[Rfam]
RNA sequence: UGACUUUGGCCAAAGUCAAACUAUUUAAGUUUGACUAAUUUUAUAGAAAAAAUAGUAAUAUUUUUAACCCUAAAUAAAUAUAUUAUGAAAAUUUAUUAAAUUAUAGAUUUAAUGAAACUAUGUUGGUGUUGUAAGUAUUACUACUUUUUUCUACAGAGUUAGUCAAACUUAGAGUAGUUUGACUUUGACUAAAGUAAA
Numbered sequence: 001u002g003a004c005u006u007u008g009g010c011c012a013a014a015g016u017c018a019a020a021c022u023a024u025u026u027a028a029g030u031u032u033g034a035c036u037a038a039u040u041u042u043a044u045a046g047a048a049a050a051a052a053u054a055g056u057a058a059u060a061u062u063u064u065u066a067a068c069c070c071u072a073a074a075u076a077a078a079u080a081u082a083u084u085a086u087g088a089a090a091a092u093u094u095a096u097u098a099a100a101u102u103a104u105a106g107a108u109u110u111a112a113u114g115a116a117a118c119u120a121u122g123u124u125g126g127u128g129u130u131g132u133a134a135g136u137a138u139u140a141c142u143a144c145u146u147u148u149u150u151c152u153a154c155a156g157a158g159u160u161a162g163u164c165a166a167a168c169u170u171a172g173a174g175u176a177g178u179u180u181g182a183c184u185u186u187g188a189c190u191a192a193a194g195u196a197a198a
Stems, first nucleotide, its partner, number of pairs: 005193005011187015030167005044153008053143003057139007065131002070126004
The record is a 198-nucleotide sequence from Oryza sativa, which matches "MIR1435 microRNA precursor family" in Rfam. Lineage of the source: Eukaryota > Tracheophyta > Petrosaviidae > Poaceae > Oryza sativa.